[Rfam]
RNA sequence: UCAGUAAAAGGGCAAACUUAUUGAAAAAUAAGGACGCAAAGUAACAGGUCUAAAGCGUGAUGCAAUGAUGGCUGUGCUGCCUGA
Numbered sequence: 001u002c003a004g005u006a007a008a009a010g011g012g013c014a015a016a017c018u019u020a021u022u023g024a025a026a027a028a029u030a031a032g033g034a035c036g037c038a039a040a041g042u043a044a045c046a047g048g049u050c051u052a053a054a055g056c057g058u059g060a061u062g063c064a065a066u067g068a069u070g071g072c073u074g075u076g077c078u079g080c081c082u083g084a
Base pairs, nucleotide, nucleotide: 012037013036017032018031019030020029021028022027040078041077042076043075045074046073047072048069049068050067055063056062057061
Dot-bracket structure: ...........((...((((((....))))))...))..((((.((((((....(((...)))...)))..)))))))......
Background: c-di-GMP-I riboswitch aptamer: an 84-nucleotide sequence from Aquibacillus koreensis. The family's consensus secondary structure is taken from published work. The source organism's lineage runs through Bacteria, Bacillati, Bacillota, Bacilli and Aquibacillus.